[Rfam]
RNA sequence: CAGCAGGGAAGCUCUGUCGCUGCUCCCGGGGCCGGAAUGCAUUCGACGAUAUUUUGGUUCGCAUACGGGAGGGGAGGAAAGUCCGGGCAACGCAGAGCGCCGCGCUUCCUAACGGGAAGAUUCUCGCGAGGGAAUGGCAAGCGUAACAGAAAACGACCGCCGUCCGCAAGGACGGUAAGGGUGAAAAGGCGGGGUAAGAGCCCACCGCGGCCGUGGCGACACGUGCCGGUCAGUACGUCCCGCGGGUUGCAAGACCAUGUAUACCGGCAGUUGUAGGGCUGCUCGUCCGAUGUCGGGGGGUAGGUUGCUGACGAGCCGUGCGGGUGACCGCCGGCCUAGAUAAAUGACAGAGGCCUUCGCUCGCGAAGGUACAGAACCCGGCUUACAAGCCCUGCUGUGCU
Numbered sequence: 001c002a003g004c005a006g007g008g009a010a011g012c013u014c015u016g017u018c019g020c021u022g023c024u025c026c027c028g029g030g031g032c033c034g035g036a037a038u039g040c041a042u043u044c045g046a047c048g049a050u051a052u053u054u055u056g057g058u059u060c061g062c063a064u065a066c067g068g069g070a071g072g073g074g075a076g077g078a079a080a081g082u083c084c085g086g087g088c089a090a091c092g093c094a095g096a097g098c099g100c101c102g103c104g105c106u107u108c109c110u111a112a113c114g115g116g117a118a119g120a121u122u123c124u125c126g127c128g129a130g131g132g133a134a135u136g137g138c139a140a141g142c143g144u145a146a147c148a149g150a151a152a153a154c155g156a157c158c159g160c161c162g163u164c165c166g167c168a169a170g171g172a173c174g175g176u177a178a179g180g181g182u183g184a185a186a187a188g189g190c191g192g193g194g195u196a197a198g199a200g201c202c203c204a205c206c207g208c209g210g211c212c213g214u215g216g217c218g219a220c221a222c223g224u225g226c227c228g229g230u231c232a233g234u235a236c237g238u239c240c241c242g243c244g245g246g247u248u249g250c251a252a253g254a255c256c257a258u259g260u261a262u263a264c265c266g267g268c269a270g271u272u273g274u275a276g277g278g279c280u281g282c283u284c285g286u287c288c289g290a291u292g293u294c295g296g297g298g299g300g301u302a303g304g305u306u307g308c309u310g311a312c313g314a315g316c317c318g319u320g321c322g323g324g325u326g327a328c329c330g331c332c333g334g335c336c337u338a339g340a341u342a343a344a345u346g347a348c349a350g351a352g353g354c355c356u357u358c359g360c361u362c363g364c365g366a367a368g369g370u371a372c373a374g375a376a377c378c379c380g381g382c383u384u385a386c387a388a389g390c391c392c393u394g395c396u397g398u399g400c401u
Stems, first nucleotide, its partner, number of pairs: 001397008011386001012352007020074002023071006079384003083381005088249004095284004100245005105119005120135001122133004136240002141238005157180002159176007188206002191203003207231001208228004213222003253306004264296005276288004315335004320331004